[Rfam]
RNA sequence: CGUGCAUCCAGCAGGGCUCGAACCCGCACAUAUGCCAAUUAAGAGUUGGGGGCUUUAACCAUUCAGCCAUGGAUGC
Numbered sequence: 001c002g003u004g005c006a007u008c009c010a011g012c013a014g015g016g017c018u019c020g021a022a023c024c025c026g027c028a029c030a031u032a033u034g035c036c037a038a039u040u041a042a043g044a045g046u047u048g049g050g051g052g053c054u055u056u057a058a059c060c061a062u063u064c065a066g067c068c069a070u071g072g073a074u075g076c
Stems, first nucleotide, its partner, number of pairs: 004076006011027002014024002041070001043068001045067006052060001
RNA: Plastid-ycf2 5UTR RNA
Organism: Semiaquilegia adoxoides